This 104-nucleotide sequence from Mycolicibacterium sp. P9-64 belongs to the Rfam family "mraW RNA". The match comes from Rfam's covariance-model search (71 bits).

RNA sequence: CACGGCCCGUGCAACGUGGCCUCUGCCCGAACCGGCCCUGGCGUACUUCCCCAACGCCAGGUACGCAAUCUCGGACAGAGACCUCGUUGCAAGGGCCACCCUUC
Numbered sequence: 001c002a003c004g005g006c007c008c009g010u011g012c013a014a015c016g017u018g019g020c021c022u023c024u025g026c027c028c029g030a031a032c033c034g035g036c037c038c039u040g041g042c043g044u045a046c047u048u049c050c051c052c053a054a055c056g057c058c059a060g061g062u063a064c065g066c067a068a069u070c071u072c073g074g075a076c077a078g079a080g081a082c083c084u085c086g087u088u089g090c091a092a093g094g095g096c097c098a099c100c101c102u103u104c
Base pairs, nucleotide, nucleotide: 010091011090012089013088014087015086016085018083019082021080022079023078024077025076027074028073029072030071033065034064037061038060039059040058041057042056043055044054